A member of the RNA family "PyrR binding site" from Halalkalibacillus sediminis, 114 nucleotides long. The family's consensus secondary structure is taken from published work. For this family Rfam cites "Molecular recognition of pyr mRNA by the Bacillus subtilis attenuation regulatory protein PyrR" (Bonner et al., Nucleic Acids Res, 2001). Rfam classes the family as a cis-regulatory element. Lineage of the source: Bacteria > Bacillati > Bacillota > Caryophanales > Halalkalibacillus. Rfam describes the family as follows. This family represents the PyrR binding site and terminator structure.
RNA sequence: AAAACCUUUAAAUUACGUCCAGAGAGACUGAAAAGGUUGUGAAGUUCAUUCGUACAAUAUAGGAGUAUGUACGAAAAGCCUCUUUGCGACCUUUAGCAAAGAGGCUUUUUAUUU
Numbered sequence: 001a002a003a004a005c006c007u008u009u010a011a012a013u014u015a016c017g018u019c020c021a022g023a024g025a026g027a028c029u030g031a032a033a034a035g036g037u038u039g040u041g042a043a044g045u046u047c048a049u050u051c052g053u054a055c056a057a058u059a060u061a062g063g064a065g066u067a068u069g070u071a072c073g074a075a076a077a078g079c080c081u082c083u084u085u086g087c088g089a090c091c092u093u094u095a096g097c098a099a100a101g102a103g104g105c106u107u108u109u110u111a112u113u114u
Stems, first nucleotide, its partner, number of pairs: 003038007013031003017028003045071001047069003051065001053063001074109014